[Rfam]
RNA sequence: GGGCGGGAGUGCGACGGAUACAAGACCCGAAAGGGAAAGAAGUCCGCCGUCUGUGUGCGGUUUUGAGCUCCCGCCCGCCCUCUC
Numbered sequence: 001g002g003g004c005g006g007g008a009g010u011g012c013g014a015c016g017g018a019u020a021c022a023a024g025a026c027c028c029g030a031a032a033g034g035g036a037a038a039g040a041a042g043u044c045c046g047c048c049g050u051c052u053g054u055g056u057g058c059g060g061u062u063u064u065g066a067g068c069u070c071c072c073g074c075c076c077g078c079c080c081u082c083u084c
Stems, first nucleotide, its partner, number of pairs: 001076009013044003026035003046061005
Shown here is an 84-nucleotide sequence from Burkholderia vietnamiensis, a member of the family "sRNA-Xcc1". The base pairs follow the family's consensus structure, which was predicted with RNAalifold. The sequence is in the family's curated seed alignment.